[Rfam]
RNA: Small nucleolar RNA snoR60
RNA sequence: CCGUAAAUGAUGAUGGUACUCGAAUUCUUCUUCAGGACAUUUAACUAGAUAAUGCAAAUUCAAGUUUCUGAUGCG
Numbered sequence: 001c002c003g004u005a006a007a008u009g010a011u012g013a014u015g016g017u018a019c020u021c022g023a024a025u026u027c028u029u030c031u032u033c034a035g036g037a038c039a040u041u042u043a044a045c046u047a048g049a050u051a052a053u054g055c056a057a058a059u060u061c062a063a064g065u066u067u068c069u070g071a072u073g074c075g
Stems, first nucleotide, its partner, number of pairs: 002075004